[Rfam]
RNA sequence: AGGCAGCCUCCUUGCCAUAAUGGCAUGAAUGGCGUUAUUCUGCUCAUAGAUCAAUUUUUCUGCUCUUCAGAUUUGCUGAGGUUACAUUUCAUAAUGCAAUCUCUGAAGCUGGUCUAGUAAGCUCAAGUACAUU
Numbered sequence: 001a002g003g004c005a006g007c008c009u010c011c012u013u014g015c016c017a018u019a020a021u022g023g024c025a026u027g028a029a030u031g032g033c034g035u036u037a038u039u040c041u042g043c044u045c046a047u048a049g050a051u052c053a054a055u056u057u058u059u060c061u062g063c064u065c066u067u068c069a070g071a072u073u074u075g076c077u078g079a080g081g082u083u084a085c086a087u088u089u090c091a092u093a094a095u096g097c098a099a100u101c102u103c104u105g106a107a108g109c110u111g112g113u114c115u116a117g118u119a120a121g122c123u124c125a126a127g128u129a130c131a132u133u
Base pairs, nucleotide, nucleotide: 002036003035004034007032008031009029011027013025014024015023016022017021057127058126059125062122063121064120069115070114071113072112073111075109076108077107080101081100082099
RNA: Small nucleolar RNA snoR77